[Rfam]
RNA sequence: GCUUGAUAAAGGCAAACCUGGUGAAAAUCAGGGACGCAAAGUUACCGGCCUAAGGGGAAACCUAGGGUAGCGGAACCACCGGG
Numbered sequence: 001g002c003u004u005g006a007u008a009a010a011g012g013c014a015a016a017c018c019u020g021g022u023g024a025a026a027a028u029c030a031g032g033g034a035c036g037c038a039a040a041g042u043u044a045c046c047g048g049c050c051u052a053a054g055g056g057g058a059a060a061c062c063u064a065g066g067g068u069a070g071c072g073g074a075a076c077c078a079c080c081g082g083g
Stems, first nucleotide, its partner, number of pairs: 012037002017032006041076003045073003048068003055062002
Overview: The family of this 83-nucleotide RNA sequence from Thalassomonas actiniarum is "c-di-GMP-I riboswitch aptamer". Lineage of the source: Bacteria > Pseudomonadota > Alteromonadales > Colwelliaceae > Thalassomonas. Its family is annotated with cyclic-di-GMP binding in the Gene Ontology. Pairs were carried over by alignment from the consensus structure, which is taken from published work. Its Rfam clan is "c-di-GMP_I riboswitch clan".